nrdJ RNA: an 85-nucleotide RNA from Streptomyces tsukubensis. The source organism's lineage runs through Bacteria, Bacillati, Actinomycetes, Kitasatosporales and Streptomyces. The family's RNA type in Rfam is small RNA.
[Rfam]
RNA sequence: ACCCGCCGCGGGCGCUGUGAGUGGUGCCCGCGGUAUUUGAGACACAUAACCAUGCCACGGGAACAUCGUGGCACUUCAGGGCGUU
Numbered sequence: 001a002c003c004c005g006c007c008g009c010g011g012g013c014g015c016u017g018u019g020a021g022u023g024g025u026g027c028c029c030g031c032g033g034u035a036u037u038u039g040a041g042a043c044a045c046a047u048a049a050c051c052a053u054g055c056c057a058c059g060g061g062a063a064c065a066u067c068g069u070g071g072c073a074c075u076u077c078a079g080g081g082c083g084u085u
Stems, first nucleotide, its partner, number of pairs: 005034012053073007